[Rfam]
RNA sequence: UUCAUCAGGGGAUGAGUUAUACUGACAUGAGCUGUCAGUAUAACUCAUGUUCAUGUCAGUAUAACUCAUCCCCUGAUGAA
Number, nucleotide and partner (000 for none) at each position: 001u000002u000003c078004a077005u076006c075007a074008g000009g072010g071011g070012a000013u068014g067015a000016g000017u064018u063019a062020u061021a060022c000023u000024g057025a056026c055027a054028u053029g052030a051031g050032c049033u000034g000035u000036c000037a000038g000039u000040a000041u000042a000043a000044c000045u000046c000047a000048u000049g032050u031051u030052c029053a028054u027055g026056u025057c024058a000059g000060u021061a020062u019063a018064a017065c000066u000067c014068a013069u000070c011071c010072c009073c000074u007075g006076a005077u004078g003079a000080a000
The family of this 80-nucleotide sequence from Rhipicephalus microplus is "mir-965 microRNA precursor family". The organism belongs to Boophilus, within Eukaryota.